Description
This 186-nucleotide RNA from Actinoplanes friuliensis belongs to the Rfam family "c-di-AMP riboswitch aptamer (ydaO/yuaA leader)". The organism belongs to Actinoplanes friuliensis, within Bacteria. About the family: This family represents a conserved RNA structure found upstream of the ydaO and yuaA genes in Bacillus subtilis and related genes in other bacteria. Pairs were carried over by alignment from the consensus structure.
[Rfam]
RNA sequence: CGGUCGGUAACGCCGAAUCCUGCCGCCGACCGGGCCGGGACCUUUAUCGAAUGGCAUGGAGCGGGGGACCCACACGUUCCCCGGCACGCGCUUGCCGCGUGCCUCGGGGUGAAGCCGCGCACCCGGCGGCCGGGCAACCUCAGCCCGAACCCGACAGCUGACCUCGCAGGCGUGGAGGUUGUACAC
Numbered sequence: 001c002g003g004u005c006g007g008u009a010a011c012g013c014c015g016a017a018u019c020c021u022g023c024c025g026c027c028g029a030c031c032g033g034g035c036c037g038g039g040a041c042c043u044u045u046a047u048c049g050a051a052u053g054g055c056a057u058g059g060a061g062c063g064g065g066g067g068a069c070c071c072a073c074a075c076g077u078u079c080c081c082c083g084g085c086a087c088g089c090g091c092u093u094g095c096c097g098c099g100u101g102c103c104u105c106g107g108g109g110u111g112a113a114g115c116c117g118c119g120c121a122c123c124c125g126g127c128g129g130c131c132g133g134g135c136a137a138c139c140u141c142a143g144c145c146c147g148a149a150c151c152c153g154a155c156a157g158c159u160g161a162c163c164u165c166g167c168a169g170g171c172g173u174g175g176a177g178g179u180u181g182u183a184c185a186c
Stems, first nucleotide, its partner, number of pairs: 011172004018060003061167006071106001107152003115129004132146004